[Rfam]
RNA sequence: CCUUCAGGAGGCGGCGUCCCACUUAGUGUAUUUGACAAGCUGAGCUGGACACUAAAAGACAGAGUGUCAGUUUGUCAAAUACCCCAAGUGAGACGUCACUAGUC
Numbered sequence: 001c002c003u004u005c006a007g008g009a010g011g012c013g014g015c016g017u018c019c020c021a022c023u024u025a026g027u028g029u030a031u032u033u034g035a036c037a038a039g040c041u042g043a044g045c046u047g048g049a050c051a052c053u054a055a056a057a058g059a060c061a062g063a064g065u066g067u068c069a070g071u072u073u074g075u076c077a078a079a080u081a082c083c084c085c086a087a088g089u090g091a092g093a094c095g096u097c098a099c100u101a102g103u104c
Base pairs, nucleotide, nucleotide: 020090021089022088023087026084028082029081030080031079032078033077034076035075036074037073038072039071040070041069048068049067050066051065053063
Rfam assigns this 104-nucleotide RNA from Gadus morhua to the family "mir-223 microRNA precursor family". The family has 27 seed sequences and 674 matches in Rfam 15.1. Lineage of the source: Eukaryota > Metazoa > Clupeocephala > Eurypterygia > Gadus. A reference for the family is Lim et al. (2003), "Vertebrate microRNA genes", Science.